[Rfam]
Nucleotides: 357
Stems, first nucleotide, its partner, number of pairs: 016034006035354004043334004049314002054078006063071002085310003089124002094117004099112001100110003128145005148306001149303007162296003168284009179272005185202005207255004216246005226236003261266001320329002335349004
Number, partner (000 for none) and nucleotide at each position: 001000g002000g003000u004000a005000g006000u007000a008000g009000c010000a011000g012000c013000u014000u015000a016034g017033u018032c019031g020030g021029g022000u023000g024000a025000g026000a027000a028000u029021c030020c031019c032018g033017a034016c035354c036353g037352c038351c039000g040000g041000a042000a043334g044333g045332g046331c047000a048000a049314g050313g051000g052000u053000u054078c055077c056076a057075u058074g059073g060000c061000c062000a063071u064070g065000u066000u067000c068000g069000u070064c071063a072000g073059c074058c075057a076056u077055g078054g079000g080000u081000u082000a083000g084000u085310c086309g087308g088000u089124c090123c091000u092000a093000a094117g095116a096115c097114g098000a099112g100110u101109c102108g103000u104000a105000a106000c107000u108102c109101g110100a111000c112099u113000c114097c115096g116095u117094c118000g119000a120000a121000a122000a123090g124089g125000g126000a127000a128145g129144c130143g131142g132141g133000u134000u135000a136000a137000u138000a139000u140000u141132c142131c143130c144129g145128c146000a147000c148306c149303g150302c151301c152300g153299u154298c155297c156000g157000c158000u159000g160000a161000u162296c163295c164294c165000g166000a167000c168284g169283c170282u171281u172280c173279g174278g175277g176276a177000u178000a179272g180271g181270c182269c183268g184000a185202g186201c187200u188199g189198g190000u191000u192000c193000g194000c195000c196000a197000g198189c199188c200187a201186g202185u203000c204000u205000a206000a207255g208254c209253g210252u211000c212000g213000a214000a215000g216246c217245c218244u219243c220242c221000g222000g223000a224000g225000g226236u227235c228234c229000g230000u231000a232000a233000u234228g235227g236226a237000g238000a239000g240000a241000a242220g243219g244218a245217g246216g247000u248000g249000a250000a251000g252210g253209c254208g255207u256000g257000a258000u259000g260000g261266c262000g263000u264000a265000a266261g267000u268183c269182g270181g271180c272179c273000g274000a275000c276176u277175c278174c279173u280172g281171g282170a283169g284168c285000c286000c287000g288000u289000g290000a291000a292000a293000a294164g295163g296162g297155g298154g299153a300152c301151g302150g303149u304000u305000g306148g307000a308087c309086c310085g311000u312000a313050c314049c315000g316000a317000g318000a319000a320329c321328c322000g323000a324000c325000a326000c327000a328321g329320g330000u331046g332045c333044c334043c335349u336348g337347g338346c339000u340000g341000a342000g343000c344000a345000a346338g347337c348336c349335a350000a351038g352037g353036c354035g355000u356000g357000g
Shown here is a 357-nucleotide part of an RNA from Archaeoglobus sulfaticallidus, a member of the family "Archaeal large subunit ribosomal RNA". The family's consensus secondary structure is taken from published work. NCBI's taxonomy places the organism under Archaea, Methanobacteriati, Methanobacteriota, Archaeoglobales, Archaeoglobus sulfaticallidus. It scores 2940 bits against the family's covariance model.